[Rfam]
RNA: Plastid-psbN 5UTR RNA
Organism: Nicotiana tabacum
RNA sequence: UGCAACACCCAUCAAAGGAGUAGUUCCCCACCUAGCUAGGAGCUACUUUACCAUAUUAGAAAUUC
Numbered sequence: 001u002g003c004a005a006c007a008c009c010c011a012u013c014a015a016a017g018g019a020g021u022a023g024u025u026c027c028c029c030a031c032c033u034a035g036c037u038a039g040g041a042g043c044u045a046c047u048u049u050a051c052c053a054u055a056u057u058a059g060a061a062a063u064u065c
Stems, first nucleotide, its partner, number of pairs: 017049011